[Rfam]
RNA sequence: UGUGCAAGUGACGAUAAAAUAGACAGGGACAUCAGCACUCCCUAUUGGAGUAUGAUGAUUUGUCAUUGGGAAUCUCUCUGAUGCACC
Numbered sequence: 001u002g003u004g005c006a007a008g009u010g011a012c013g014a015u016a017a018a019a020u021a022g023a024c025a026g027g028g029a030c031a032u033c034a035g036c037a038c039u040c041c042c043u044a045u046u047g048g049a050g051u052a053u054g055a056u057g058a059u060u061u062g063u064c065a066u067u068g069g070g071a072a073u074c075u076c077u078c079u080g081a082u083g084c085a086c087c
Base pairs, nucleotide, nucleotide: 002086003085004084005083006082

Small nucleolar RNA R44/J54/Z268 family: an 87-nucleotide RNA from Nyssa sinensis. The family's consensus secondary structure was predicted with PFOLD. Its family is annotated with nucleolus and RNA processing in the Gene Ontology. The family has 29 seed sequences and 1,168 matches in Rfam 15.1. It scores 84 bits against the family's covariance model. Clan: SNORD74 clan.